[Rfam]
RNA sequence: GACUUUCUUCGCGGCGGAGCUCGACCGCCAACGCAAGUGAUCGUCGACUACAUCGACAGCCACAAGGAGGAGUUCGGCGUCGAGCCGAUCUGCAGGGUGCUCACCGAGCACGGCUGCAAGGUCUCGUCG
Numbered sequence: 001g002a003c004u005u006u007c008u009u010c011g012c013g014g015c016g017g018a019g020c021u022c023g024a025c026c027g028c029c030a031a032c033g034c035a036a037g038u039g040a041u042c043g044u045c046g047a048c049u050a051c052a053u054c055g056a057c058a059g060c061c062a063c064a065a066g067g068a069g070g071a072g073u074u075c076g077g078c079g080u081c082g083a084g085c086c087g088a089u090c091u092g093c094a095g096g097g098u099g100c101u102c103a104c105c106g107a108g109c110a111c112g113g114c115u116g117c118a119a120g121g122u123c124u125c126g127u128c129g
Base pairs, nucleotide, nucleotide: 013029014028015027016026017025075129076128077127078126079125087123089121090120091118092117093116094115095114